[Rfam]
Annotation: The family of this 379-nucleotide RNA from Rhodosalinus halophilus is "Bacterial RNase P class A". Pairs were carried over by alignment from the consensus structure, which is taken from published work. About the family: Ribonuclease P (RNase P) is a ubiquitous endoribonuclease, found in archaea, bacteria and eukarya as well as chloroplasts and mitochondria. Its best characterised activity is the generation of mature 5'-ends of tRNAs by cleaving the 5'-leader elements of precursor-tRNAs. Cellular RNase Ps are ribonucleoproteins. RNA from bacterial RNase Ps retains its catalytic activity in the absence of the protein subunit, i.e. it is a ribozyme.

RNA sequence: GCGGAGGGCCGGAUGGCCGCGGCCGAGAGGCCGAGGAAAGUCCGGACUCCUGGAAGCGACGGUGCCGGGUAACGCCCGGGCGGAGAAAUCCGACGGAAAGCGCCGCAGAAAACAGACCGCCCGCGGUGCGCCGCGGGCAAGGGUGAAACGGUGGGGUAAGAGCCCACCGGGCCGCCGGCAACGGGGGCCGCACGGCAAGCCCCACCGGGAGCAAUGCCGAAUAGGGACCUCGCGCGGAGCUUCGGCUCUGCAGGGCAGCUUCCGCCCGAGAGGUCCGGGUUGGCAGCGUGAGCGCCGGAGCGAUCCGGCGCCCAGACGAAUGGCCAUCCAGGGGGCGAAAGCCCCCGGACAGAAUCCGGCUUACAGGCCCUCCGCGCAU
Numbered sequence: 001g002c003g004g005a006g007g008g009c010c011g012g013a014u015g016g017c018c019g020c021g022g023c024c025g026a027g028a029g030g031c032c033g034a035g036g037a038a039a040g041u042c043c044g045g046a047c048u049c050c051u052g053g054a055a056g057c058g059a060c061g062g063u064g065c066c067g068g069g070u071a072a073c074g075c076c077c078g079g080g081c082g083g084a085g086a087a088a089u090c091c092g093a094c095g096g097a098a099a100g101c102g103c104c105g106c107a108g109a110a111a112a113c114a115g116a117c118c119g120c121c122c123g124c125g126g127u128g129c130g131c132c133g134c135g136g137g138c139a140a141g142g143g144u145g146a147a148a149c150g151g152u153g154g155g156g157u158a159a160g161a162g163c164c165c166a167c168c169g170g171g172c173c174g175c176c177g178g179c180a181a182c183g184g185g186g187g188c189c190g191c192a193c194g195g196c197a198a199g200c201c202c203c204a205c206c207g208g209g210a211g212c213a214a215u216g217c218c219g220a221a222u223a224g225g226g227a228c229c230u231c232g233c234g235c236g237g238a239g240c241u242u243c244g245g246c247u248c249u250g251c252a253g254g255g256c257a258g259c260u261u262c263c264g265c266c267c268g269a270g271a272g273g274u275c276c277g278g279g280u281u282g283g284c285a286g287c288g289u290g291a292g293c294g295c296c297g298g299a300g301c302g303a304u305c306c307g308g309c310g311c312c313c314a315g316a317c318g319a320a321u322g323g324c325c326a327u328c329c330a331g332g333g334g335g336c337g338a339a340a341g342c343c344c345c346c347g348g349a350c351a352g353a354a355u356c357c358g359g360c361u362u363a364c365a366g367g368c369c370c371u372c373c374g375c376g377c378a379u
Stems, first nucleotide, its partner, number of pairs: 001375010011364001012328007020033005038362003042359005047211004056261001058259001060207005065079005080094001081092004095202002100200002102196003117142002119138008150168006169191001170189004175184003215285004225276006253267004292311008